[Rfam]
RNA sequence: CUGUAAACGACAUAGAUAACUCAUAUAUAUUUGCAAUAGGGGCAAGUGUUUCUACAGCUGACCGUAAAUCAGCUACUAUGGGUAAUGACAAAAAAUGC
Numbered sequence: 001c002u003g004u005a006a007a008c009g010a011c012a013u014a015g016a017u018a019a020c021u022c023a024u025a026u027a028u029a030u031u032u033g034c035a036a037u038a039g040g041g042g043c044a045a046g047u048g049u050u051u052c053u054a055c056a057g058c059u060g061a062c063c064g065u066a067a068a069u070c071a072g073c074u075a076c077u078a079u080g081g082g083u084a085a086u087g088a089c090a091a092a093a094a095a096u097g098c
Base pairs, nucleotide, nucleotide: 019083020082021081022080023079024078025077029047030046031045032044033043034042056074057073058072059071060070061069
RNA: Purine riboswitch aptamer